[Rfam]
RNA sequence: GCUUUACGAAACUAGGGUUCCGGCUUUCCAAGGGAAGUGACUGGUCCAAGGGUUUCGGGCCCUUUCAAGGGGUUCCACGGAGGGAUAAAAGCCCGGGAGGU
Numbered sequence: 001g002c003u004u005u006a007c008g009a010a011a012c013u014a015g016g017g018u019u020c021c022g023g024c025u026u027u028c029c030a031a032g033g034g035a036a037g038u039g040a041c042u043g044g045u046c047c048a049a050g051g052g053u054u055u056c057g058g059g060c061c062c063u064u065u066c067a068a069g070g071g072g073u074u075c076c077a078c079g080g081a082g083g084g085a086u087a088a089a090a091g092c093c094c095g096g097g098a099g100g101u
Stems, first nucleotide, its partner, number of pairs: 007057006015047002020044002022041001023038006058074007076096001078099001082094003
Description
Guanidine-I riboswitch aptamer: a 101-nucleotide sequence from Nitrosomonas eutropha. NCBI's taxonomy places the organism under Bacteria, Pseudomonadati, Betaproteobacteria, Nitrosomonadaceae, Nitrosomonas eutropha. The literature on the family includes a 2004 paper in Proc Natl Acad Sci U S A by Barrick et al., "New RNA motifs suggest an expanded scope for riboswitches in bacterial genetic control". The sequence is in the family's curated seed alignment.